[Rfam]
RNA sequence: AAGGUGGAAGCUGAAAAACCUUAAAUGAGUAGGCA
Numbered sequence: 001a002a003g004g005u006g007g008a009a010g011c012u013g014a015a016a017a018a019c020c021u022u023a024a025a026u027g028a029g030u031a032g033g034c035a
Stems, first nucleotide, its partner, number of pairs: 002021004010034003

The record is a 35-nucleotide sequence from Aquiflexum balticum, which matches "DUF805b RNA" in Rfam. Taxonomically the source falls in Aquiflexum balticum (Bacteria, Cytophagales, Cyclobacteriaceae, Aquiflexum). The family's consensus secondary structure is taken from published work.